This 48-nucleotide RNA from Streptomyces finlayi belongs to the Rfam family "raiA-hairpin RNA". Taxonomically the source falls in Streptomyces (Bacteria, Bacillati, Actinomycetes, Kitasatosporales). The match comes from Rfam's covariance-model search (58 bits).
RNA sequence: CGCCGAGUCCGAGGUUCCGGCCAGACCGGAGCCUGGUGCAAAAAGGGA
Numbered sequence: 001c002g003c004c005g006a007g008u009c010c011g012a013g014g015u016u017c018c019g020g021c022c023a024g025a026c027c028g029g030a031g032c033c034u035g036g037u038g039c040a041a042a043a044a045g046g047g048a
Stems, first nucleotide, its partner, number of pairs: 013033008